RNA sequence: CCCAUCCGGCCAGGAGAGCGCGUCCAACGCACAACGGACGCCGCCGAAGGGGAUCACCCAUAAACUCUCAGGCAUCAAGGACUGAUCGGAUCGA
Numbered sequence: 001c002c003c004a005u006c007c008g009g010c011c012a013g014g015a016g017a018g019c020g021c022g023u024c025c026a027a028c029g030c031a032c033a034a035c036g037g038a039c040g041c042c043g044c045c046g047a048a049g050g051g052g053a054u055c056a057c058c059c060a061u062a063a064a065c066u067c068u069c070a071g072g073c074a075u076c077a078a079g080g081a082c083u084g085a086u087c088g089g090a091u092c093g094a
Stems, first nucleotide, its partner, number of pairs: 006089004011084003020041006043073003046069002050067003
RNA: Glycine riboswitch aptamer